Shown here is a 98-nucleotide RNA sequence from Electrophorus electricus, a member of the family "Small nucleolar RNA SNORD16". By type it is a C/D-box small nucleolar RNA. Its family is annotated with nucleolus and RNA processing in the Gene Ontology. It scores 92 bits against the family's covariance model. The base pairs follow the family's consensus structure, which was predicted with PFOLD. The organism belongs to Electrophorus, within Eukaryota. A reference for the family is Fragapane et al. (1993), "A novel small nucleolar RNA (U16) is encoded inside a ribosomal protein intron and originates by processing of the pre-mRNA", EMBO J.

Nucleotides: 098
Base pairs, nucleotide, nucleotide: 001098002097003096021081022080023079024078030071032069033068034067039063040062041057042056043055044054045053
Number, partner (000 for none) and nucleotide at each position: 001098u002097g003096c004000a005000g006000u007000g008000a009000u010000g011000g012000u013000g014000u015000a016000a017000u018000u019000u020000g021081c022080g023079u024078c025000u026000u027000a028000c029000g030071c031000u032069g033068c034067g035000c036000a037000c038000a039063g040062c041057g042056a043055c044054a045053g046000u047000u048000g049000c050000c051000u052000g053045c054044u055043g056042u057041c058000a059000c060000a061000u062040g063039c064000u065000g066000g067034c068033g069032c070000u071030g072000a073000c074000g075000g076000c077000u078024g079023a080022c081021g082000a083000a084000u085000g086000c087000c088000a089000a090000g091000u092000c093000u094000g095000a096003g097002c098001a